The family of this 122-nucleotide sequence from Zingiber officinale is "Small nucleolar RNA SNORD14". The literature on the family includes a 1996 paper in Nucleic Acids Res by Samarsky et al., "An essential domain in Saccharomyces cerevisiae U14 snoRNA is absent in vertebrates, but conserved in other yeasts". The match comes from Rfam's covariance-model search (68 bits). About the family: U14 small nucleolar RNA (U14 snoRNA) is required for early cleavages of eukaryotic precursor rRNAs. In yeasts, this molecule possess a stem-loop region (known as the Y-domain) which is essential for function. A similar structure, but with a different consensus sequence, is found in plants, but is absent in vertebrates. The base pairs follow the family's consensus structure, which was predicted with PFOLD.
[Rfam]
RNA sequence: UUUCUAUGAUCACAAAUUCUAAGCUUGUUUCUCAAAACAUUCACAGUUGGCACCUGAGAGCUUUUGCCUUGCCAGGCUUGAGAGCUUGCGCUGCUCAAUUCUUCCUUGGGAUGUUUGAGAAA
Numbered sequence: 001u002u003u004c005u006a007u008g009a010u011c012a013c014a015a016a017u018u019c020u021a022a023g024c025u026u027g028u029u030u031c032u033c034a035a036a037a038c039a040u041u042c043a044c045a046g047u048u049g050g051c052a053c054c055u056g057a058g059a060g061c062u063u064u065u066g067c068c069u070u071g072c073c074a075g076g077c078u079u080g081a082g083a084g085c086u087u088g089c090g091c092u093g094c095u096c097a098a099u100u101c102u103u104c105c106u107u108g109g110g111a112u113g114u115u116u117g118a119g120a121a122a
Base pairs, nucleotide, nucleotide: 001122002121003120004119060085061084062083063082064081065080